[Rfam]
RNA sequence: CCCACACCCAUGUGUGUAGGACCUCAAAUGGUCACCAUUAAAUUUGGCACAGAUCUCUAGAAAAGUUAUCACAUGGGUGUGGGACUUGACUUUUCUAGAUAUUUGUGCCAAAUUUACUGGUGAUCCUUUGAGGUCCUAUACACAGGGGUGGGA
Numbered sequence: 001c002c003c004a005c006a007c008c009c010a011u012g013u014g015u016g017u018a019g020g021a022c023c024u025c026a027a028a029u030g031g032u033c034a035c036c037a038u039u040a041a042a043u044u045u046g047g048c049a050c051a052g053a054u055c056u057c058u059a060g061a062a063a064a065g066u067u068a069u070c071a072c073a074u075g076g077g078u079g080u081g082g083g084a085c086u087u088g089a090c091u092u093u094u095c096u097a098g099a100u101a102u103u104u105g106u107g108c109c110a111a112a113u114u115u116a117c118u119g120g121u122g123a124u125c126c127u128u129u130g131a132g133g134u135c136c137u138a139u140a141c142a143c144a145g146g147g148g149u150g151g152g153a
Stems, first nucleotide, its partner, number of pairs: 002152002005150005011144003015140014030125003034121004039116016056099013069082005